Rfam assigns this 94-nucleotide RNA from Dictyobacter vulcani to the family "Selenocysteine transfer RNA". The family's consensus secondary structure is taken from published work. The match comes from Rfam's covariance-model search (64 bits). The organism belongs to Dictyobacter, within Bacteria. Gene Ontology term of the family: triplet codon-amino acid adaptor activity.
RNA sequence: GGAGGUGUAGGGGCCCCGGUGGGUCUCACCGUCUUCAAAACGGCUGGGGGUCGCUCGGCGCGGUCCCCGGUGAGUUCGACUCUCAUACACCUCU
Numbered sequence: 001g002g003a004g005g006u007g008u009a010g011g012g013g014c015c016c017c018g019g020u021g022g023g024u025c026u027c028a029c030c031g032u033c034u035u036c037a038a039a040a041c042g043g044c045u046g047g048g049g050g051u052c053g054c055u056c057g058g059c060g061c062g063g064u065c066c067c068c069g070g071u072g073a074g075u076u077c078g079a080c081u082c083u084c085a086u087a088c089a090c091c092u093c094u
Base pairs, nucleotide, nucleotide: 001094002093003092004091005090006089007088008087009086011026012025013024014023015022016021029043030042031041032040047068048067049066050065071085072084073083074082